[Rfam]
Record summary:
The family of this 57-nucleotide RNA sequence from Gossypium davidsonii is "Plastid-ndhJ 3UTR RNA". For this family Rfam cites "Retrograde signaling in plants: A critical review focusing on the GUN pathway and beyond" (Richter et al., Plant Commun, 2023). Plastid ndhJ is a non-coding RNA (ncRNA) present in plastids. It was identified as a short stem-loop motif in the 3 prime untranslate region (3UTR) of ndhJ gene. It scores 52 bits against the family's covariance model. Rfam 15.1 lists 869 matches to the family in 155 species.

RNA sequence: CUGUGAACUUUGUAUCGCACAUAUCACUUAGAUGAAUUCUAGAGAGUCUCAUAGAAG
Numbered sequence: 001c002u003g004u005g006a007a008c009u010u011u012g013u014a015u016c017g018c019a020c021a022u023a024u025c026a027c028u029u030a031g032a033u034g035a036a037u038u039c040u041a042g043a044g045a046g047u048c049u050c051a052u053a054g055a056a057g
Base pairs, nucleotide, nucleotide: 019037022034023033024032025031